[Rfam]
RNA sequence: AAAAGUUCUACGGGGUAGCAGAAAACAAAGCGCGGGGUGAGCGCGUUGCCGGCACGUGGUGCACACGUGUCGGCCGCGGAAGUGUCUGCAUGUACGGCGGGGCCAAUCAUCGUCGGACAACAACAAUACAUGCAGGCCGACUUGCGGAUAAGCGACGCUCCGUCGUCUGACCGGGGAAGGCAGUGAUCGGGCGGCGGCGGACGUUUUUUAAUC
Dot-bracket structure: ((((((.((.((.(................).)).))....((((..(((((((((((.....)))))))))))))))....((((((((((.......(.(........).)...............)))))))))..)...(((.........)))(((((((.(((.(((..............))).)))))))))).)))))).....
A member of the RNA family "Burkholderia sRNA 1" from Burkholderia seminalis, 213 nucleotides long.
A reference for the family is Stubben et al. (2014), "Differential expression of small RNAs from Burkholderia thailandensis in response to varying environmental and stress conditions", BMC Genomics.
The organism belongs to Burkholderia cepacia complex, within Bacteria.
The base pairs follow the family's consensus structure, which was predicted with RNAfold.
About the family: Trans-encoded, exhibits differential expression profiles dependent on growth phase and cell stimuli, such as antbiotics and serum.
The family's RNA type in Rfam is small RNA.